[Rfam]
RNA sequence: GGCCUCCCUCUGUGGGGCGAUCAAUCACAGGGACCCCAGAUUGAUUGCCACACAGAGGGAGGCC
Numbered sequence: 001g002g003c004c005u006c007c008c009u010c011u012g013u014g015g016g017g018c019g020a021u022c023a024a025u026c027a028c029a030g031g032g033a034c035c036c037c038a039g040a041u042u043g044a045u046u047g048c049c050a051c052a053c054a055g056a057g058g059g060a061g062g063c064c
Base pairs, nucleotide, nucleotide: 001064002063003062004061005060006059007058008057009056010055011054012053013052014051016049017048018047019046020045021044022043023042024041025040026039030037031036